Description:
The family of this 111-nucleotide RNA sequence from Oryza meyeriana is "mir-166 microRNA precursor family". Gene Ontology terms of the family: RISC complex and miRNA-mediated post-transcriptional gene silencing. This family represents the plant microRNA (miRNA) precursor mir-166.
RNA sequence: CUUGUGGGGAAUGUUGGCUGGCUCGAGGCAUCCACUAGCUUAGCUUCCUCGCCGGCCGGCGAGCCGGCUCCGGCGUGUGGAGGCGUCGGACCAGGCUUCAUUCCUCGCAAG
Numbered sequence: 001c002u003u004g005u006g007g008g009g010a011a012u013g014u015u016g017g018c019u020g021g022c023u024c025g026a027g028g029c030a031u032c033c034a035c036u037a038g039c040u041u042a043g044c045u046u047c048c049u050c051g052c053c054g055g056c057c058g059g060c061g062a063g064c065c066g067g068c069u070c071c072g073g074c075g076u077g078u079g080g081a082g083g084c085g086u087c088g089g090a091c092c093a094g095g096c097u098u099c100a101u102u103c104c105u106c107g108c109a110a111g
Stems, first nucleotide, its partner, number of pairs: 001111013016096001018094004024088003
Source information
The source organism's lineage runs through Eukaryota, Viridiplantae, Spermatophyta, Oryzinae and Oryza meyeriana.